Background:
The record is a 159-nucleotide sequence from Arabis nemorensis, which matches "Small nucleolar RNA snoR138" in Rfam. It is annotated as an H/ACA-box small nucleolar RNA. The source organism's lineage runs through Eukaryota, Euphyllophyta, Magnoliopsida, rosids and Arabis. For this family Rfam cites "Mining small RNA sequencing data: a new approach to identify small nucleolar RNAs in Arabidopsis" (Chen and Wu, Nucleic Acids Res, 2009).
RNA sequence: AUAGCCUCCGAAUAACGAGAAGGUGAAAUAUAGGAACACUUUCUGGUUCAGACAGAGGCUUAUAUAAAAAAAACUUGAAUCAGAUUAUUGAAGGUGAAAAAAAAACUCUUUUUUUGCCAUCAAAAUCUCCUUCCUUUUAUUGGAUAGAUUCGAAUAUCU
Numbered sequence: 001a002u003a004g005c006c007u008c009c010g011a012a013u014a015a016c017g018a019g020a021a022g023g024u025g026a027a028a029u030a031u032a033g034g035a036a037c038a039c040u041u042u043c044u045g046g047u048u049c050a051g052a053c054a055g056a057g058g059c060u061u062a063u064a065u066a067a068a069a070a071a072a073a074c075u076u077g078a079a080u081c082a083g084a085u086u087a088u089u090g091a092a093g094g095u096g097a098a099a100a101a102a103a104a105a106c107u108c109u110u111u112u113u114u115u116g117c118c119a120u121c122a123a124a125a126u127c128u129c130c131u132u133c134c135u136u137u138u139a140u141u142g143g144a145u146a147g148a149u150u151c152g153a154a155u156a157u158c159u
Stems, first nucleotide, its partner, number of pairs: 003060006014048003018044004023039003076152006083127003089119002094117001097114006132144003